[Rfam]
RNA sequence: UUAUUUUUUAAAUAUUCUCUAAUAAAAUUAAAAUCUGUUCUUAUCAGUUUAAUAUCUGAUAUGUUCUCAAUGUGAGAACUUUAUAUUAAAUGGAUUUUUGGAACAGGGAGAUGGAAUAGGAGCUUGCUUCUUCCACUCCAUGCAUCAACCUGGUAUUGCAGUACUUCCAGGUAUGGUGCGCCUCCC
Numbered sequence: 001u002u003a004u005u006u007u008u009u010a011a012a013u014a015u016u017c018u019c020u021a022a023u024a025a026a027a028u029u030a031a032a033a034u035c036u037g038u039u040c041u042u043a044u045c046a047g048u049u050u051a052a053u054a055u056c057u058g059a060u061a062u063g064u065u066c067u068c069a070a071u072g073u074g075a076g077a078a079c080u081u082u083a084u085a086u087u088a089a090a091u092g093g094a095u096u097u098u099u100g101g102a103a104c105a106g107g108g109a110g111a112u113g114g115a116a117u118a119g120g121a122g123c124u125u126g127c128u129u130c131u132u133c134c135a136c137u138c139c140a141u142g143c144a145u146c147a148a149c150c151u152g153g154u155a156u157u158g159c160a161g162u163a164c165u166u167c168c169a170g171g172u173a174u175g176g177u178g179c180g181c182c183u184c185c186c
Base pairs, nucleotide, nucleotide: 006022007021042061043060044059045058046057047056063079064078065077066076067075068074069073107139108138109137110136113133114132119130120129121128122127142179143178144177145176146175147174149171150170151169152168153167
The family of this 186-nucleotide RNA sequence from Terrapene triunguis is "U2 spliceosomal RNA". By type it is a spliceosomal small nuclear RNA. The base pairs follow the family's consensus structure, which is taken from published work. Rfam links the family to the GO terms U2 snRNP, pre-mRNA branch point binding and mRNA branch site recognition. Rfam 15.1 lists 71,512 matches to the family in 2,642 species.